[Rfam]
RNA sequence: UGCAGCCCCGUCAAAUUCGGUCCCUGCCUCCUCCGUGGCGGGGACUGGCCAGCCGGCUGCCACAGCAACUUCUGUUGUCCACGAGUCCCCUGUCCCCUCCCGUGGGACCCCGGGGAUAAAAUCACACCACAGACAUGG
Numbered sequence: 001u002g003c004a005g006c007c008c009c010g011u012c013a014a015a016u017u018c019g020g021u022c023c024c025u026g027c028c029u030c031c032u033c034c035g036u037g038g039c040g041g042g043g044a045c046u047g048g049c050c051a052g053c054c055g056g057c058u059g060c061c062a063c064a065g066c067a068a069c070u071u072c073u074g075u076u077g078u079c080c081a082c083g084a085g086u087c088c089c090c091u092g093u094c095c096c097c098u099c100c101c102g103u104g105g106g107a108c109c110c111c112g113g114g115g116a117u118a119a120a121a122u123c124a125c126a127c128c129a130c131a132g133a134c135a136u137g138g
Stems, first nucleotide, its partner, number of pairs: 002060004018047011074130002077127002086116005
Rfam assigns this 138-nucleotide RNA from Chionis minor to the family "Small nucleolar RNA SNORA5". Its family is annotated with RNA processing and nucleolus in the Gene Ontology. NCBI's taxonomy places the organism under Eukaryota, Bilateria, Archelosauria, Theropoda, Chionis. ACA5 is a member of the H/ACA class of snoRNA that guide the sites of modification of uridines to pseudouridines. Its Rfam clan is "SNORA5 clan".